This 73-nucleotide sequence from Nasonia vitripennis belongs to the Rfam family "mir-71 microRNA precursor family". The sequence is in the family's curated seed alignment. On this family, see Li et al., BMC Genomics 2009: "Direct sequencing and expression analysis of a large number of miRNAs in Aedes aegypti and a multi-species survey of novel mosquito miRNAs". Rfam 15.1 lists 372 matches to the family in 291 species.
RNA sequence: UCCGCUUGAAAGACAUGGGUAGUGAGAUGCUUACCUCGGAUUCGCGUCUCACUACCUUGUCUUUCAUGCGGCG
Numbered sequence: 001u002c003c004g005c006u007u008g009a010a011a012g013a014c015a016u017g018g019g020u021a022g023u024g025a026g027a028u029g030c031u032u033a034c035c036u037c038g039g040a041u042u043c044g045c046g047u048c049u050c051a052c053u054a055c056c057u058u059g060u061c062u063u064u065c066a067u068g069c070g071g072c073g
Base pairs, nucleotide, nucleotide: 008065009064010063011062012061013060014059015058017057018056019055021053022052023051024050025049026048027047028046029045